A member of the RNA family "Small nucleolar RNA SNORA33" from Jaculus jaculus, 131 nucleotides long. It scores 97 bits against the family's covariance model. Rfam's curators write: ACA33 is a member of the H/ACA class of snoRNA that guide the sites of modification of uridines to pseudouridines.
[Rfam]
RNA sequence: AAGCCAACCAAUUAAUCUGCUUAUCUAAGUGUGUUUCUGCAGAAAUUUAGAAAAAGCUGAGAACAGUGAUGACAUGUUAUGAGCCUUAAGGACCAGUGUUGUCAUUAUGGCUCCACAAAAUAGCUACAAUA
Numbered sequence: 001a002a003g004c005c006a007a008c009c010a011a012u013u014a015a016u017c018u019g020c021u022u023a024u025c026u027a028a029g030u031g032u033g034u035u036u037c038u039g040c041a042g043a044a045a046u047u048u049a050g051a052a053a054a055a056g057c058u059g060a061g062a063a064c065a066g067u068g069a070u071g072a073c074a075u076g077u078u079a080u081g082a083g084c085c086u087u088a089a090g091g092a093c094c095a096g097u098g099u100u101g102u103c104a105u106u107a108u109g110g111c112u113c114c115a116c117a118a119a120a121u122a123g124c125u126a127c128a129a130u131a
Stems, first nucleotide, its partner, number of pairs: 005059002016043005071124001074121001083111003087107003091103003